[Rfam]
PreQ1 (pre queuosine) riboswitch aptamer: a 48-nucleotide RNA from Liquorilactobacillus ghanensis. The base pairs follow the family's consensus structure. The source organism's lineage runs through Bacteria, Bacillati, Bacillota, Lactobacillaceae and Liquorilactobacillus ghanensis. Rfam describes the family as follows. This family is a bacterial riboswitch that binds to the metabolite preQ1, an intermediate in the biosynthesis of the modified nucleoside queuosine from GTP. One example of this riboswitch is located in the leader of the Bacillus subtilis ykvJKLM (queCDEF) operon which encodes four genes necessary for queuosine production. PreQ1 binding to the riboswitch aptamer is thought to induce premature transcription termination within the leader to down-regulate expression of these genes. On this family, see Reader et al., J Biol Chem 2004: "Identification of four genes necessary for biosynthesis of the modified nucleoside queuosine". A search with the family's covariance model found it, with a score of 42 bits.

RNA sequence: UGCCGGGUGGUUCGUAAACAUCCCACCGUAAUAAAAAACUAGGAGGAA
Numbered sequence: 001u002g003c004c005g006g007g008u009g010g011u012u013c014g015u016a017a018a019c020a021u022c023c024c025a026c027c028g029u030a031a032u033a034a035a036a037a038a039c040u041a042g043g044a045g046g047a048a
Base pairs, nucleotide, nucleotide: 006027007026008025009024010023015041016040